[Rfam]
RNA: c-di-GMP-I riboswitch aptamer
RNA sequence: UAUUAUUGUCGGCAAACCUUCCGAAAGGGAGGGACGCAAAGCUAUGGGCCUACGGUUUUCUUACUAUGGCUGCCAAGUUGCAUGU
Numbered sequence: 001u002a003u004u005a006u007u008g009u010c011g012g013c014a015a016a017c018c019u020u021c022c023g024a025a026a027g028g029g030a031g032g033g034a035c036g037c038a039a040a041g042c043u044a045u046g047g048g049c050c051u052a053c054g055g056u057u058u059u060c061u062u063a064c065u066a067u068g069g070c071u072g073c074c075a076a077g078u079u080g081c082a083u084g085u
Base pairs, nucleotide, nucleotide: 012037013036017032018031019030020029021028022027040079041078042077043076045075046074047073048070049069050068055064056063